A member of the RNA family "Mammalian CPEB3 ribozyme" from Crocodylus porosus, 80 nucleotides long.
Rfam links the family to the GO term RNA nuclease activity.
NCBI's taxonomy places the organism under Eukaryota, Metazoa, Bilateria, Longirostres, Crocodylus.
RNA sequence: AGAGGUCCUAAGUUUGAGGCCAUAGUAGAAGCAUUCAUAAUGGGGGCCUGUCAGAUUCCAGUGAAUCUGUGAAUUCUGCU
Numbered sequence: 001a002g003a004g005g006u007c008c009u010a011a012g013u014u015u016g017a018g019g020c021c022a023u024a025g026u027a028g029a030a031g032c033a034u035u036c037a038u039a040a041u042g043g044g045g046g047c048c049u050g051u052c053a054g055a056u057u058c059c060a061g062u063g064a065a066u067c068u069g070u071g072a073a074u075u076c077u078g079c080u
Stems, first nucleotide, its partner, number of pairs: 016048001018047001020045002024080007032042002052069007
Dot-bracket structure: ...............[.[.[[..(((((((.((.......)).]].]]...(((((((....)))))))....)))))))